[Rfam]
RNA: Bacterial small signal recognition particle RNA
RNA sequence: UCCAGGAGCUUUAAUAAUGGGUUUCGCCCAACCCCGCCAGGACCGGAAGGUAGCAACGGUAAGUGAAAUGUUAUUGUUUAAAGUAAGCCUGGGUGU
Numbered sequence: 001u002c003c004a005g006g007a008g009c010u011u012u013a014a015u016a017a018u019g020g021g022u023u024u025c026g027c028c029c030a031a032c033c034c035c036g037c038c039a040g041g042a043c044c045g046g047a048a049g050g051u052a053g054c055a056a057c058g059g060u061a062a063g064u065g066a067a068a069u070g071u072u073a074u075u076g077u078u079u080a081a082a083g084u085a086a087g088c089c090u091g092g093g094u095g096u
Base pairs, nucleotide, nucleotide: 002092003091004090005089006088008084009083010082011081012080013077015076016075017074018073019072020071023067024066025065026064027063034059035058036057042051043050044049